A member of the RNA family "small nucleolar RNA snoR137" from Abrus precatorius, 139 nucleotides long. A reference for the family is Chen and Wu (2009), "Mining small RNA sequencing data: a new approach to identify small nucleolar RNAs in Arabidopsis", Nucleic Acids Res. The organism belongs to Abrus, within Eukaryota. Rfam classes the family as an H/ACA-box small nucleolar RNA. Rfam links the family to the GO terms RNA processing and nucleolus. It scores 58 bits against the family's covariance model. The base pairs follow the family's consensus structure, which was predicted with RNAalifold.
RNA sequence: GUUGCUUCUGUAAUGCUGAGUGCCAUGUUUUGUGUUUGGUCAUUCACACUGGGAAGCAUAGAGUUGUGAUUUCAUUGCCAGUUUUAAACAGCAUGAUGUUUAUUUCUUAUCAUUGUGUUACCUGUCUGCUGGUAAAUCU
Numbered sequence: 001g002u003u004g005c006u007u008c009u010g011u012a013a014u015g016c017u018g019a020g021u022g023c024c025a026u027g028u029u030u031u032g033u034g035u036u037u038g039g040u041c042a043u044u045c046a047c048a049c050u051g052g053g054a055a056g057c058a059u060a061g062a063g064u065u066g067u068g069a070u071u072u073c074a075u076u077g078c079c080a081g082u083u084u085u086a087a088a089c090a091g092c093a094u095g096a097u098g099u100u101u102a103u104u105u106c107u108u109a110u111c112a113u114u115g116u117g118u119u120a121c122c123u124g125u126c127u128g129c130u131g132g133u134a135a136a137u138c139u
Base pairs, nucleotide, nucleotide: 003058004057005056006055007054008053017046018045019044020043021042022040023039024038025037077133078132079131080130081129082128090119091118092117094115095114096113097112098111